[Rfam]
RNA sequence: UGAAUGAACUGGCAAACUUAUCGAAAGGUAAGGACGCAAAGCUAUGGGUCUAAGGGUACUGUUUGCCUAUGAUUGCCAGGUUGCCAUC
Numbered sequence: 001u002g003a004a005u006g007a008a009c010u011g012g013c014a015a016a017c018u019u020a021u022c023g024a025a026a027g028g029u030a031a032g033g034a035c036g037c038a039a040a041g042c043u044a045u046g047g048g049u050c051u052a053a054g055g056g057u058a059c060u061g062u063u064u065g066c067c068u069a070u071g072a073u074u075g076c077c078a079g080g081u082u083g084c085c086a087u088c
Stems, first nucleotide, its partner, number of pairs: 012037002017032006040082004045078003048073003055067004
Background: A member of the RNA family "c-di-GMP-I riboswitch aptamer" from Anaerospora hongkongensis, 88 nucleotides long. A search with the family's covariance model found it, with a score of 79 bits. GEMM was predicted in a large-scale screen for bacterial structured RNA regulatory elements. The base pairs follow the family's consensus structure, which is taken from published work.